[Rfam]
Small nucleolar RNA snoR145: a 147-nucleotide RNA from Ricinus communis. Rfam links the family to the GO terms nucleolus and RNA processing.
Nucleotides: 147
Stems, first nucleotide, its partner, number of pairs: 003072007011020003026046002029040003083138005095125002098122003102118004
Number, partner (000 for none) and nucleotide at each position: 001000a002000a003072g004071c005070g006069a007068a008067g009066g010000u011020c012019c013018c014000a015000g016000c017000a018013g019012g020011g021000a022000g023000g024000c025000a026046g027045g028000a029040c030039u031038c032000u033000g034000a035000a036000u037000u038031g039030a040029g041000g042000c043000c044000u045027c046026u047000c048000u049000a050000a051000c052000a053000a054000c055000a056000a057000u058000a059000g060000a061000a062000a063000u064000u065000a066009c067008c068007u069006u070005c071004g072003c073000a074000g075000a076000u077000u078000a079000a080000u081000c082000u083138g084137c085136c086135g087134a088000a089000u090000c091000g092000u093000a094000g095125g096124a097000u098122g099121c100120c101000c102118u103117g104116a105115a106000u107000u108000u109000u110000c111000c112000a113000u114000u115105u116104u117103u118102g119000u120100g121099g122098c123000g124096u125095c126000c127000g128000g129000a130000a131000c132000c133000c134087u135086c136085g137084g138083c139000u140000a141000u142000a143000u144000c145000u146000u147000u
The family has 19 seed sequences and 286 matches in Rfam 15.1. Rfam classes the family as an H/ACA-box small nucleolar RNA. For this family Rfam cites "Mining small RNA sequencing data: a new approach to identify small nucleolar RNAs in Arabidopsis" (Chen and Wu, Nucleic Acids Res, 2009).